A member of the RNA family "Glycine riboswitch aptamer" from Staphylococcus sp. HGB0015, 94 nucleotides long.
The organism belongs to Staphylococcus, within Bacteria.

[Rfam]
RNA sequence: ACGAUCAAUAUUAGAGAGCAUGGCAUGGGCCAUCGCCGAAGGAGCAAGUAACUUGGAUUACGAAUCUCUCAGGCAAAAGGAUAAUAUUGUGACG
Numbered sequence: 001a002c003g004a005u006c007a008a009u010a011u012u013a014g015a016g017a018g019c020a021u022g023g024c025a026u027g028g029g030c031c032a033u034c035g036c037c038g039a040a041g042g043a044g045c046a047a048g049u050a051a052c053u054u055g056g057a058u059u060a061c062g063a064a065u066c067u068c069u070c071a072g073g074c075a076a077a078a079g080g081a082u083a084a085u086a087u088u089g090u091g092a093c094g
Stems, first nucleotide, its partner, number of pairs: 006089008020033004035074003038070002042068003048061002
Dot-bracket structure: .....((((((((......((((......)))).(((((..(((...((..........))....))))).))).......)))))))).....